[Rfam]
RNA sequence: UCCCUAUAAUCGCUGAAUUCCAAUGGAAACGGGGGAACCAACUGUGGUGGACUGUGGACCACAAGGGGUGAAUCUUAUCAAAUGAAGCCUAUUUGAUGAGUAGGGUGACUCUCAGCACCCGAAUCCGUCAGCUAACCUCGUAAGCGUAGUGAGAGGGGGG
Numbered sequence: 001u002c003c004c005u006a007u008a009a010u011c012g013c014u015g016a017a018u019u020c021c022a023a024u025g026g027a028a029a030c031g032g033g034g035g036a037a038c039c040a041a042c043u044g045u046g047g048u049g050g051a052c053u054g055u056g057g058a059c060c061a062c063a064a065g066g067g068g069u070g071a072a073u074c075u076u077a078u079c080a081a082a083u084g085a086a087g088c089c090u091a092u093u094u095g096a097u098g099a100g101u102a103g104g105g106u107g108a109c110u111c112u113c114a115g116c117a118c119c120c121g122a123a124u125c126c127g128u129c130a131g132c133u134a135a136c137c138u139c140g141u142a143a144g145c146g147u148a149g150u151g152a153g154a155g156g157g158g159g160g
Stems, first nucleotide, its partner, number of pairs: 011146004018028003029141006039065001066126003074100009103120004
A member of the RNA family "c-di-AMP riboswitch aptamer (ydaO/yuaA leader)" from Baia soyae, 160 nucleotides long. Lineage of the source: Bacteria > Bacillota > Caryophanales > Thermoactinomycetaceae > Baia.